Overview
This 170-nucleotide sequence from Ktedonobacteria bacterium brp13 belongs to the Rfam family "glmS glucosamine-6-phosphate activated ribozyme aptamer".
RNA sequence: UCGUGUUUAGUAGCGCAUGGGCCGGGCUCGGGAGGGAGCUACGGUUGACGAGGAGGAGGCUGUUCGGAAACCUGUCAGCGGGGAGUCUCCAGGGUUUACUCACACCCCUAACAAGACAGCAUACAACGCCUACCGGUAACGGUCAGGACAAAACGCUGUCGGUGAGGUAA
Dot-bracket structure: ...................((((((((.(......).))).)))))........(((((....(.((.......)).).......))))).((((........)))).......((((((........(..((((....))))..)........))))))..........
It is annotated as a riboswitch. This entry contains a glucosamine-6-phosphate activated ribozyme that is found in the mRNA for GlmS. GlmS is an enzyme that uses fructose-6-phosphate and glutamine to generate glucosamine-6-phosphate. The source organism's lineage runs through Bacteria, Bacillati, Chloroflexota and Ktedonobacteria.